[Rfam]
RNA sequence: UGGAUUGGUAGAGGCGCGGGGUUCAUCAGUACCGUUCCGCCACAGCCCGGCAGGCUGCGGAGCGGGAAAGGGGACACCGCCGAAGGGGCGCUUUGGCCGAAGGCGCCGCCUGGGGCGACGCAGAAGAUGCGGCGCACUGUCACAAGAACUGUGAAGCGCUAUCGUCGGU
Numbered sequence: 001u002g003g004a005u006u007g008g009u010a011g012a013g014g015c016g017c018g019g020g021g022u023u024c025a026u027c028a029g030u031a032c033c034g035u036u037c038c039g040c041c042a043c044a045g046c047c048c049g050g051c052a053g054g055c056u057g058c059g060g061a062g063c064g065g066g067a068a069a070g071g072g073g074a075c076a077c078c079g080c081c082g083a084a085g086g087g088g089c090g091c092u093u094u095g096g097c098c099g100a101a102g103g104c105g106c107c108g109c110c111u112g113g114g115g116c117g118a119c120g121c122a123g124a125a126g127a128u129g130c131g132g133c134g135c136a137c138u139g140u141c142a143c144a145a146g147a148a149c150u151g152u153g154a155a156g157c158g159c160u161a162u163c164g165u166c167g168g169u
Stems, first nucleotide, its partner, number of pairs: 006164006016080004021075004032065008084111003087107008112138002115135003119131004140154005
The record is a 169-nucleotide RNA from Anaerofilum sp. An201, which matches "Lysine riboswitch aptamer" in Rfam. Gene Ontology term of the family: lysine biosynthetic process. The source organism's lineage runs through Bacteria, Bacillati, Clostridia, Eubacteriales and Anaerofilum. A reference for the family is Mandal et al. (2003), "Riboswitches Control Fundamental Biochemical Pathways in Bacillus subtilis and Other Bacteria", Cell. Riboswitches are metabolite binding domains within certain messenger RNAs that serve as precision sensors for their corresponding targets. The family's consensus secondary structure is taken from published work.